[Rfam]
RNA sequence: UCAGAAAGCCGGAUGGCCGCUCUGCCUCGUGAGUAUUUCGUCAGGCGGAGAGGAAAGUCCGGGCUCCAUGGAAAGCACGGUGCCGGAUAACCUCCGGCGGGGGCGACCCCAGGGAAAGUGCCACAGAAAGCAAACCGCCCUGCGAAGCCGUCGUCAGACGGAGAAGCAGGGUAAGGGUGAAAGGGUGCGGUAAGAGCGCACCGCGCGCGCCGGCAACGGCCGCGGCACGGUAAACCCCACCGGGAGCAAGACCAAAUAGGGGCGGCGUGAAGAGCUCUGGCUCGUCAGGUCCGCUUCCAGACCAGCCGCCCGGGUUGGUUGCUCGAGGCGUGCGGCAACGUACGUCCCAGAUGAAUGGCCAUCGCCGCGAAAGCGGUACAGAACCCGGCUUACAGGCUUCCUGACAUG
Numbered sequence: 001u002c003a004g005a006a007a008g009c010c011g012g013a014u015g016g017c018c019g020c021u022c023u024g025c026c027u028c029g030u031g032a033g034u035a036u037u038u039c040g041u042c043a044g045g046c047g048g049a050g051a052g053g054a055a056a057g058u059c060c061g062g063g064c065u066c067c068a069u070g071g072a073a074a075g076c077a078c079g080g081u082g083c084c085g086g087a088u089a090a091c092c093u094c095c096g097g098c099g100g101g102g103g104c105g106a107c108c109c110c111a112g113g114g115a116a117a118g119u120g121c122c123a124c125a126g127a128a129a130g131c132a133a134a135c136c137g138c139c140c141u142g143c144g145a146a147g148c149c150g151u152c153g154u155c156a157g158a159c160g161g162a163g164a165a166g167c168a169g170g171g172u173a174a175g176g177g178u179g180a181a182a183g184g185g186u187g188c189g190g191u192a193a194g195a196g197c198g199c200a201c202c203g204c205g206c207g208c209g210c211c212g213g214c215a216a217c218g219g220c221c222g223c224g225g226c227a228c229g230g231u232a233a234a235c236c237c238c239a240c241c242g243g244g245a246g247c248a249a250g251a252c253c254a255a256a257u258a259g260g261g262g263c264g265g266c267g268u269g270a271a272g273a274g275c276u277c278u279g280g281c282u283c284g285u286c287a288g289g290u291c292c293g294c295u296u297c298c299a300g301a302c303c304a305g306c307c308g309c310c311c312g313g314g315u316u317g318g319u320u321g322c323u324c325g326a327g328g329c330g331u332g333c334g335g336c337a338a339c340g341u342a343c344g345u346c347c348c349a350g351a352u353g354a355a356u357g358g359c360c361a362u363c364g365c366c367g368c369g370a371a372a373g374c375g376g377u378a379c380a381g382a383a384c385c386c387g388g389c390u391u392a393c394a395g396g397c398u399u400c401c402u403g404a405c406a407u408g
Stems, first nucleotide, its partner, number of pairs: 001404004006399005011393001012363007020050008055391003059388005064246004074296002078242005083097005098112001099110004113237002118235002120231003135176002137172007184202006203226001204224004209220004250320004260311006289303001292300001327346008
Dot-bracket structure: ((((.(((((((((((((.((((((((...............))))))))....[[[.[[[[[((((......[[..((((((((((.....)))))(((((....)))).)((...(((((............(((((((((......................)))))))..)).......((((((.......))))))(((((.((((....)))))))).)..)))..)))))))))))))...((((......((((((.......................(..(..]]...)..)..)))))).....))))......((((((((....))))))))..........)))))))....................]]]]]]]].).))))).))))....
Shown here is a 408-nucleotide RNA from Methyloligella halotolerans, a member of the family "Bacterial RNase P class A". Ribonuclease P (RNase P) is a ubiquitous endoribonuclease, found in archaea, bacteria and eukarya as well as chloroplasts and mitochondria. Gene Ontology terms of the family: ribonuclease P activity, tRNA processing and dimeric ribonuclease P complex. The source organism's lineage runs through Bacteria, Pseudomonadota, Hyphomicrobiales, Hyphomicrobiaceae and Methyloligella.